[Rfam]
RNA sequence: GCAAAUAGUUUACUCCAAAACUGGAAACCUACGGUGGGGAACUAUGGGGACCAGGCAAGUGCCAAUGGGUACUCGGGUAGUGUUGGAAACGGCGCUAUCUCCUGUGGGAAAGGAGUCUGUAUACAAAGCGG
Numbered sequence: 001g002c003a004a005a006u007a008g009u010u011u012a013c014u015c016c017a018a019a020a021c022u023g024g025a026a027a028c029c030u031a032c033g034g035u036g037g038g039g040a041a042c043u044a045u046g047g048g049g050a051c052c053a054g055g056c057a058a059g060u061g062c063c064a065a066u067g068g069g070u071a072c073u074c075g076g077g078u079a080g081u082g083u084u085g086g087a088a089a090c091g092g093c094g095c096u097a098u099c100u101c102c103u104g105u106g107g108g109a110a111a112g113g114a115g116u117c118u119g120u121a122u123a124c125a126a127a128g129c130g131g
Stems, first nucleotide, its partner, number of pairs: 012116005021054004028047002033043003059072005075100011101108002